[Rfam]
RNA sequence: UGACGGGGGCCCGCACAAGCGGUGGAGCAUGUGGUUUAAUUCGAUGGUACGCGAGGAACCUUACCUGGGUUUGACAUACACAGCGAUCAUAUAGAGAUAUGUGAGCGUAGCAAUACGGCUGUGAACAGGUGCUGCAUGGCUGUCGUCAGCUCGUGCCGUGAGGUGUUGGGUUAAGUCCCGCAACGAGCGCAACCCCUACUGCCAGUUACCAGCAUGUAAAGAUGGGGACUCUGGCGGAACUGCCGGUGACAAACCGGAGGAAGGUGGGGAUGACGUCAAGUCAUCAUGGCCCUUAUGUCCAGGGCAACACACGUGCUACAAUGGUCGCGACAGAGUGAAGCGAAGUCGAGAGGCGAAGCAAAACGCAUAAAAGCGAUCGUAGUCCGGAUUGGAGUCUGAAACCCGACUCCAUGAAGUUGGAAUCGCUAGUAAUCGCACAUCAGCACGGUGCGGUGAAUACGUUCCCGGGCCUUGUACACACCGCCCGUCACACCAUCCGAGUAGAGGAUACCCGAAGCCAGUGGUUCAACCGCAAGGAGGGCGCUGUCGAAGGUAUGCUUUGUAAGGGGGGUGAAGUCGUAACAAGG
Numbered sequence: 001u002g003a004c005g006g007g008g009g010c011c012c013g014c015a016c017a018a019g020c021g022g023u024g025g026a027g028c029a030u031g032u033g034g035u036u037u038a039a040u041u042c043g044a045u046g047g048u049a050c051g052c053g054a055g056g057a058a059c060c061u062u063a064c065c066u067g068g069g070u071u072u073g074a075c076a077u078a079c080a081c082a083g084c085g086a087u088c089a090u091a092u093a094g095a096g097a098u099a100u101g102u103g104a105g106c107g108u109a110g111c112a113a114u115a116c117g118g119c120u121g122u123g124a125a126c127a128g129g130u131g132c133u134g135c136a137u138g139g140c141u142g143u144c145g146u147c148a149g150c151u152c153g154u155g156c157c158g159u160g161a162g163g164u165g166u167u168g169g170g171u172u173a174a175g176u177c178c179c180g181c182a183a184c185g186a187g188c189g190c191a192a193c194c195c196c197u198a199c200u201g202c203c204a205g206u207u208a209c210c211a212g213c214a215u216g217u218a219a220a221g222a223u224g225g226g227g228a229c230u231c232u233g234g235c236g237g238a239a240c241u242g243c244c245g246g247u248g249a250c251a252a253a254c255c256g257g258a259g260g261a262a263g264g265u266g267g268g269g270a271u272g273a274c275g276u277c278a279a280g281u282c283a284u285c286a287u288g289g290c291c292c293u294u295a296u297g298u299c300c301a302g303g304g305c306a307a308c309a310c311a312c313g314u315g316c317u318a319c320a321a322u323g324g325u326c327g328c329g330a331c332a333g334a335g336u337g338a339a340g341c342g343a344a345g346u347c348g349a350g351a352g353g354c355g356a357a358g359c360a361a362a363a364c365g366c367a368u369a370a371a372a373g374c375g376a377u378c379g380u381a382g383u384c385c386g387g388a389u390u391g392g393a394g395u396c397u398g399a400a401a402c403c404c405g406a407c408u409c410c411a412u413g414a415a416g417u418u419g420g421a422a423u424c425g426c427u428a429g430u431a432a433u434c435g436c437a438c439a440u441c442a443g444c445a446c447g448g449u450g451c452g453g454u455g456a457a458u459a460c461g462u463u464c465c466c467g468g469g470c471c472u473u474g475u476a477c478a479c480a481c482c483g484c485c486c487g488u489c490a491c492a493c494c495a496u497c498c499g500a501g502u503a504g505a506g507g508a509u510a511c512c513c514g515a516a517g518c519c520a521g522u523g524g525u526u527c528a529a530c531c532g533c534a535a536g537g538a539g540g541g542c543g544c545u546g547u548c549g550a551a552g553g554u555a556u557g558c559u560u561u562g563u564a565a566g567g568g569g570g571g572u573g574a575a576g577u578c579g580u581a582a583c584a585a586g587g
Stems, first nucleotide, its partner, number of pairs: 001478002003475003007472007015462002019426005024319001026317008034308002040055004064303007077125001080122005087104007106117004128292002131290004137286002139281003142277001144275002149188006155164003167180004194269004199237007209226002213224003240260002243257005323378006335366003340359002345354003385416001390411007432454007481586001483583001486579002491573004496568003501563006508556005517548001519546004524542004530537002
RNA: Bacterial small subunit ribosomal RNA, nucleotides 922 to 1508
Organism: Treponema parvum